[Rfam]
RNA sequence: AGCACUGACUCCCACAUAUGCAUUCCUUGGAAAGCUGAAUAAAAUGAGCAAAAAAACCUCUGCCGCCGAAAUGAGUGCU
Dot-bracket structure: (((((.................(((.(((..........)))...)))..........................)))))
Rfam assigns this 79-nucleotide sequence from Papio anubis to the family "Small nucleolar RNA SNORD116". Rfam classes the family as a C/D-box small nucleolar RNA. It scores 47 bits against the family's covariance model.